[Rfam]
RNA sequence: UUAUCCUCUCAGGCCUUUUGGCUAAGAUCAAGUGUAGUAUCUGUUCUUUAUAGUUUAACAACUAUAAUGAGGGACAUUGUCCCUCUCGUUGUUAAUCUAAUUUUUUCCACCAGGAAACUAAGGCUCUGGCUUGCUAUCUUUGGUUUCCACAGGUGUCCCUUGCCUUACACUAUCAGCGAGGUGACGCCGACCUUUU
Number, nucleotide and partner (000 for none) at each position: 001u000002u000003a000004u000005c000006c000007u027008c026009u025010c000011a000012g023013g022014c021015c020016u000017u000018u000019u000020g015021g014022c013023u012024a000025a009026g008027a007028u000029c000030a000031a000032g000033u000034g000035u000036a000037g000038u000039a000040u000041c000042u000043g000044u000045u000046c000047u000048u067049u066050a065051u064052a063053g062054u000055u000056u000057a000058a000059c000060a000061a000062c053063u052064a051065u050066a049067a048068u000069g085070a084071g083072g082073g081074a080075c079076a000077u000078u000079g075080u074081c073082c072083c071084u070085c069086u000087c000088g000089u000090u000091g000092u000093u000094a000095a000096u000097c000098u000099a000100a000101u000102u000103u000104u000105u000106u000107c000108c000109a000110c000111c000112a000113g148114g147115a146116a145117a144118c143119u142120a141121a000122g000123g000124c000125u000126c000127u136128g135129g134130c000131u000132u000133g000134c129135u128136a127137u000138c000139u000140u000141u120142g119143g118144u117145u116146u115147c114148c113149a000150c000151a000152g188153g187154u186155g185156u184157c000158c181159c180160u179161u178162g177163c176164c000165u000166u000167a000168c000169a000170c000171u000172a000173u000174c000175a000176g163177c162178g161179a160180g159181g158182u000183g000184a156185c155186g154187c153188c152189g000190a000191c000192c000193u000194u000195u000196u000

A member of the RNA family "U2 spliceosomal RNA" from Rhizopus delemar, 196 nucleotides long.
The source organism's lineage runs through Eukaryota, Mucoromycotina, Mucorineae, Rhizopus and Rhizopus delemar.